[Rfam]
Annotation: Vault RNA: a 92-nucleotide RNA sequence from Acanthochromis polyacanthus. By type it is a non-coding RNA gene. A search with the family's covariance model found it, with a score of 56 bits. NCBI's taxonomy places the organism under Eukaryota, Actinopteri, Neoteleostei, Pomacentridae, Acanthochromis.
RNA sequence: GCAUCGGUUUAGCUCAAUGGUUCCCUCUGCACCAAACUAUCUAAUGGACCGCGAAUUCCAGGGUACGACCAUGGGCGCUGUCCGAUGUUUUC
Numbered sequence: 001g002c003a004u005c006g007g008u009u010u011a012g013c014u015c016a017a018u019g020g021u022u023c024c025c026u027c028u029g030c031a032c033c034a035a036a037c038u039a040u041c042u043a044a045u046g047g048a049c050c051g052c053g054a055a056u057u058c059c060a061g062g063g064u065a066c067g068a069c070c071a072u073g074g075g076c077g078c079u080g081u082c083c084g085a086u087g088u089u090u091u092c
Stems, first nucleotide, its partner, number of pairs: 002087006012076004017072004026068002